[Rfam]
RNA sequence: CCGGGGCACGCAACCUCCCGGUCAGGCGGUUCGCCCAAGCGUUGC
Numbered sequence: 001c002c003g004g005g006g007c008a009c010g011c012a013a014c015c016u017c018c019c020g021g022u023c024a025g026g027c028g029g030u031u032c033g034c035c036c037a038a039g040c041g042u043u044g045c
Base pairs, nucleotide, nucleotide: 001021002020003019004018005017006016010045011044012043013042014041025035026034027033028032
chrB-b RNA: a 45-nucleotide RNA from Novosphingobium endophyticum. Rfam classes the family as a cis-regulatory element. The match comes from Rfam's covariance-model search (44 bits).